[Rfam]
U12 minor spliceosomal RNA: a 158-nucleotide RNA sequence from Zingiber officinale.
A reference for the family is Tarn and Steitz (1997), "Pre-mRNA splicing: the discovery of a new spliceosome doubles the challenge", Trends Biochem Sci.
The family's RNA type in Rfam is spliceosomal small nuclear RNA.
RNA sequence: AGGCCUUAAACUAAUGAGUAAGGGGAAAAAAAGCGAGUGGUGGGAGAUGUUCGUUGCGCUCAUUAAUUUGCUAUGCGCACACAUUUAUGGAGGGCUAGUAGGCUGGUCGAGUGUUGACGCUGCUUACUUCGUAGAAUUCACUCGUGAAGGCCUAAUAU
Numbered sequence: 001a002g003g004c005c006u007u008a009a010a011c012u013a014a015u016g017a018g019u020a021a022g023g024g025g026a027a028a029a030a031a032a033g034c035g036a037g038u039g040g041u042g043g044g045a046g047a048u049g050u051u052c053g054u055u056g057c058g059c060u061c062a063u064u065a066a067u068u069u070g071c072u073a074u075g076c077g078c079a080c081a082c083a084u085u086u087a088u089g090g091a092g093g094g095c096u097a098g099u100a101g102g103c104u105g106g107u108c109g110a111g112u113g114u115u116g117a118c119g120c121u122g123c124u125u126a127c128u129u130c131g132u133a134g135a136a137u138u139c140a141c142u143c144g145u146g147a148a149g150g151c152c153u154a155a156u157a158u
Base pairs, nucleotide, nucleotide: 004023005022006021007020008019033054034053035052036051037050038049039048055079056078057077058076059075096157100153101152102151103150104149108144109143111141112140113139120134121133122132123131